Rfam assigns this 132-nucleotide sequence from Drymodes brunneopygia to the family "Small nucleolar RNA SNORA55".
Rfam links the family to the GO terms RNA processing and nucleolus.
Rfam describes the family as follows. ACA55 is a member of the H/ACA class of snoRNA that guide the sites of modification of uridines to pseudouridines.
The match comes from Rfam's covariance-model search (94 bits).
[Rfam]
RNA sequence: GCACCUGCCUCUUUUCCUGUUCCUCGCUGUGCAGUGAAGGUCUGGGGGCAUUUGGUGCUACAGCACAGCAGUGGGAAAUCCAGAUGGGUUCUUCACUAGUUUGGGACUCAUCUCUACACCUCUGCAACACUA
Numbered sequence: 001g002c003a004c005c006u007g008c009c010u011c012u013u014u015u016c017c018u019g020u021u022c023c024u025c026g027c028u029g030u031g032c033a034g035u036g037a038a039g040g041u042c043u044g045g046g047g048g049c050a051u052u053u054g055g056u057g058c059u060a061c062a063g064c065a066c067a068g069c070a071g072u073g074g075g076a077a078a079u080c081c082a083g084a085u086g087g088g089u090u091c092u093u094c095a096c097u098a099g100u101u102u103g104g105g106a107c108u109c110a111u112c113u114c115u116a117c118a119c120c121u122c123u124g125c126a127a128c129a130c131u132a
Stems, first nucleotide, its partner, number of pairs: 001058005013048002016046004022040002068125004073120001082113008096104003